The family of this 74-nucleotide RNA sequence from Heliconius melpomene is "mir-193 microRNA precursor family". The organism belongs to Heliconius, within Eukaryota. It is one of the family's seed sequences. For this family Rfam cites "In vitro and in silico annotation of conserved and nonconserved microRNAs in the genome of the marsupial Monodelphis domestica" (Devor and Samollow, J Hered, 2008).
RNA sequence: AGCCUUGGUGAGGGUCUUGGCGGUCUAGUGGGUGUGCUCAGUUCUUACUGGCCUGCUAAGUCCCAAGCUAUGGU
Numbered sequence: 001a002g003c004c005u006u007g008g009u010g011a012g013g014g015u016c017u018u019g020g021c022g023g024u025c026u027a028g029u030g031g032g033u034g035u036g037c038u039c040a041g042u043u044c045u046u047a048c049u050g051g052c053c054u055g056c057u058a059a060g061u062c063c064c065a066a067g068c069u070a071u072g073g074u
Stems, first nucleotide, its partner, number of pairs: 003072001005070001007068001009067001012064003016060005022054002025051001027049002030046002